[Rfam]
RNA sequence: CGAUCGGGAGGCCCUUGGUGGGACAAGGGCCGGGAAUGGAUCGCACCCGCCAUCUCUGAUGGACGUGCUGCUGUGGCCCGACAGUGCGCGCG
Numbered sequence: 001c002g003a004u005c006g007g008g009a010g011g012c013c014c015u016u017g018g019u020g021g022g023a024c025a026a027g028g029g030c031c032g033g034g035a036a037u038g039g040a041u042c043g044c045a046c047c048c049g050c051c052a053u054c055u056c057u058g059a060u061g062g063a064c065g066u067g068c069u070g071c072u073g074u075g076g077c078c079c080g081a082c083a084g085u086g087c088g089c090g091c092g
Base pairs, nucleotide, nucleotide: 001043002042003041004040005039010031011030012029013028014027015026016025017024064092065091066090067089068088069086070085071084072083073082

A member of the RNA family "Rhodo-rpoB RNA", 92 nucleotides long. Pairs were carried over by alignment from the consensus structure, which is taken from published work. It is one of the family's seed sequences. The family's RNA type in Rfam is cis-regulatory element.